[Rfam]
RNA sequence: GGAGGCAAAUGAUGUGAUUUCAAAUCUUAUCCUACACACUGAAAACACUGUGUGGACAGAUAACUCCGCUUAUUAUCUGAUGCCUCU
Numbered sequence: 001g002g003a004g005g006c007a008a009a010u011g012a013u014g015u016g017a018u019u020u021c022a023a024a025u026c027u028u029a030u031c032c033u034a035c036a037c038a039c040u041g042a043a044a045a046c047a048c049u050g051u052g053u054g055g056a057c058a059g060a061u062a063a064c065u066c067c068g069c070u071u072a073u074u075a076u077c078u079g080a081u082g083c084c085u086c087u
Base pairs, nucleotide, nucleotide: 003085004084005083006082007081
The family of this 87-nucleotide RNA from Musa acuminata is "Small nucleolar RNA R16".
By type it is a C/D-box small nucleolar RNA.
On this family, see Galardi et al., Mol Cell Biol 2002: "Purified box C/D snoRNPs are able to reproduce site-specific 2'-O-methylation of target RNA in vitro".
It scores 83 bits against the family's covariance model.
The organism belongs to Musa acuminata, within Eukaryota.
The family has 18 seed sequences and 884 matches in Rfam 15.1.